[Rfam]
About this RNA
Rfam assigns this 257-nucleotide RNA sequence from Ktedonosporobacter rubrisoli to the family "Group I catalytic intron". Rfam links the family to the GO term Group I intron splicing. A search with the family's covariance model found it, with a score of 59 bits. Group I catalytic introns are large self-splicing ribozymes. They catalyse their own excision from mRNA, tRNA and rRNA precursors in a wide range of organisms. The core secondary structure consists of 9 paired regions (P1-P9). These fold to essentially two domains - the P4-P6 domain (formed from the stacking of P5, P4, P6 and P6a helices) and the P3-P9 domain (formed from the P8, P3, P7 and P9 helices). The secondary structure mark-up for this family represents only this conserved core. Group I catalytic introns often have long ORFs inserted in loop regions. The window size for this search is chosen to minimise search time and catch the small examples. A larger window size will find more matches.
RNA sequence: UGUCAUCUCUUAGCAGUAGGAGCUUCAGGGAGUAAUCCCUGUCGAACACUCCGAGAAUUGCUGGGAAACCCCGCAAGACUGCUCCACCACAACGUAGCCUGAAAGAGCAAGCGUGAAGGUUUGAAAAGGGGCAGGUAAGGGCAAUCAGCAGCCGAGCACCUACAGGGUAGAGCCACAGGGUGAAGGUUCAGAGACUAGGUACGGAGGGCCUGAGUGCUCAGGUCAAGGUAUAGUCCGACCCUUGCAGAAAUGUAAGG
Numbered sequence: 001u002g003u004c005a006u007c008u009c010u011u012a013g014c015a016g017u018a019g020g021a022g023c024u025u026c027a028g029g030g031a032g033u034a035a036u037c038c039c040u041g042u043c044g045a046a047c048a049c050u051c052c053g054a055g056a057a058u059u060g061c062u063g064g065g066a067a068a069c070c071c072c073g074c075a076a077g078a079c080u081g082c083u084c085c086a087c088c089a090c091a092a093c094g095u096a097g098c099c100u101g102a103a104a105g106a107g108c109a110a111g112c113g114u115g116a117a118g119g120u121u122u123g124a125a126a127a128g129g130g131g132c133a134g135g136u137a138a139g140g141g142c143a144a145u146c147a148g149c150a151g152c153c154g155a156g157c158a159c160c161u162a163c164a165g166g167g168u169a170g171a172g173c174c175a176c177a178g179g180g181u182g183a184a185g186g187u188u189c190a191g192a193g194a195c196u197a198g199g200u201a202c203g204g205a206g207g208g209c210c211u212g213a214g215u216g217c218u219c220a221g222g223u224c225a226a227g228g229u230a231u232a233g234u235c236c237g238a239c240c241c242u243u244g245c246a247g248a249a250a251u252g253u254a255a256g257g
Base pairs, nucleotide, nucleotide: 005024007022008021009020010019011018012017028039029038030037049206050205051204052203055200059150060149061148062147063146064145069141070140071139151187152186159179160178161177191236193235194234195233196232197231209222210221211220212219213218242255243254244253245252246251